[Rfam]
RNA: mir-129 microRNA precursor family
Organism: Gouania willdenowi
RNA sequence: ACAGAUCUUUUUGCGGUCUGGGCUUGCCGUGAUGAUGAUGAGGGGAAGCCCUUACCCCAAAAAGCAUCUG
Numbered sequence: 001a002c003a004g005a006u007c008u009u010u011u012u013g014c015g016g017u018c019u020g021g022g023c024u025u026g027c028c029g030u031g032a033u034g035a036u037g038a039u040g041a042g043g044g045g046a047a048g049c050c051c052u053u054a055c056c057c058c059a060a061a062a063a064g065c066a067u068c069u070g
Base pairs, nucleotide, nucleotide: 007064008063009062010061011060012059013058015056016055017054020051021050022049023048025046027044028043